[Rfam]
RNA sequence: ACACUGGGAGGCCUUCUCUUUCCAGUUCUUCUUGAAGUCAGGAAAGAUUGAGUUGAGAGGGCAGGGGGAAAAAAAU
Numbered sequence: 001a002c003a004c005u006g007g008g009a010g011g012c013c014u015u016c017u018c019u020u021u022c023c024a025g026u027u028c029u030u031c032u033u034g035a036a037g038u039c040a041g042g043a044a045a046g047a048u049u050g051a052g053u054u055g056a057g058a059g060g061g062c063a064g065g066g067g068g069a070a071a072a073a074a075a076u
Stems, first nucleotide, its partner, number of pairs: 014059005021052001023050003029044006
Rfam assigns this 76-nucleotide sequence from Prolemur simus to the family "mir-320 microRNA precursor family". The match comes from Rfam's covariance-model search (57 bits).